[Rfam]
RNA: Small nucleolar RNA SNORD91 family
RNA sequence: CUUAGGAGCCAGUGAUGUUUUUAUUCAUAAUGUCUGAACCUAUCUGAAGCAUCGCCAUGAUGCAACAUCUGUUACUGAGGCUUCUUUGGCA
Numbered sequence: 001c002u003u004a005g006g007a008g009c010c011a012g013u014g015a016u017g018u019u020u021u022u023a024u025u026c027a028u029a030a031u032g033u034c035u036g037a038a039c040c041u042a043u044c045u046g047a048a049g050c051a052u053c054g055c056c057a058u059g060a061u062g063c064a065a066c067a068u069c070u071g072u073u074a075c076u077g078a079g080g081c082u083u084c085u086u087u088g089g090c091a
Stems, first nucleotide, its partner, number of pairs: 004085007